The record is a 64-nucleotide sequence from Octodon degus, which matches "Selenocysteine insertion sequence 1" in Rfam. It scores 36 bits against the family's covariance model. Rfam describes the family as follows. The incorporation of selenocysteine into a protein sequence is directed by an in-frame UGA codon (usually a stop codon) within the coding region of the mRNA. Selenoprotein mRNAs contain a conserved secondary structure in the 3' UTR that is required for the distinction of UGA stop from UGA selenocysteine. The selenocysteine insertion sequence (SECIS) is around 60 nt in length and adopts a hairpin structure which is sufficiently well-defined and conserved to act as a computational screen for selenoprotein genes. Rfam classes the family as a cis-regulatory element. The base pairs follow the family's consensus structure, which is taken from published work. The source organism's lineage runs through Eukaryota, Craniata, Dipnotetrapodomorpha, Glires and Octodon.
RNA sequence: GUCACUGCAUGAUCUGCUCUGACUAAACCCUCCUAGGGCAAUCAGGGUGGUGACAAUCUGUGAC
Numbered sequence: 001g002u003c004a005c006u007g008c009a010u011g012a013u014c015u016g017c018u019c020u021g022a023c024u025a026a027a028c029c030c031u032c033c034u035a036g037g038g039c040a041a042u043c044a045g046g047g048u049g050g051u052g053a054c055a056a057u058c059u060g061u062g063a064c
Stems, first nucleotide, its partner, number of pairs: 001064005014050009029038003
Dot-bracket structure: (((((........(((((((((......(((....)))...))))))))).........)))))